RNA sequence: GGUUUGAAUCUAGAGCAGGAUUAAAUUCCUCUCCAACCUGCCCUCUCCGGCAAGGUGGAAAAGUGAUUCGGUUAACCAACAAAUAAAGGAGUUAAA
Numbered sequence: 001g002g003u004u005u006g007a008a009u010c011u012a013g014a015g016c017a018g019g020a021u022u023a024a025a026u027u028c029c030u031c032u033c034c035a036a037c038c039u040g041c042c043c044u045c046u047c048c049g050g051c052a053a054g055g056u057g058g059a060a061a062a063g064u065g066a067u068u069c070g071g072u073u074a075a076c077c078a079a080c081a082a083a084u085a086a087a088g089g090a091g092u093u094a095a096a
Base pairs, nucleotide, nucleotide: 006069007068008067009066010065015031017030018029019028020027032059033058034057037055038054039053040051041050042049045091046090047089048088071080072079073078
RNA: SAM-I/IV (S-adenosyl methionine) riboswitch aptamer